A member of the RNA family "skipping-rope RNA", 73 nucleotides long.

[Rfam]
RNA sequence: AACGCUAGAGGAUAGAACAGGCAGCUAUCGCCCAUCGUUAGGAGAUGCGGGAACCGUCACCCCGCCUAGCUUU
Numbered sequence: 001a002a003c004g005c006u007a008g009a010g011g012a013u014a015g016a017a018c019a020g021g022c023a024g025c026u027a028u029c030g031c032c033c034a035u036c037g038u039u040a041g042g043a044g045a046u047g048c049g050g051g052a053a054c055c056g057u058c059a060c061c062c063c064g065c066c067u068a069g070c071u072u073u
Base pairs, nucleotide, nucleotide: 001073002072004070005069006068007067008066011029012028013027014026015025020058021057022056031042047065048064049063050062051061
Notes: By type it is a small RNA.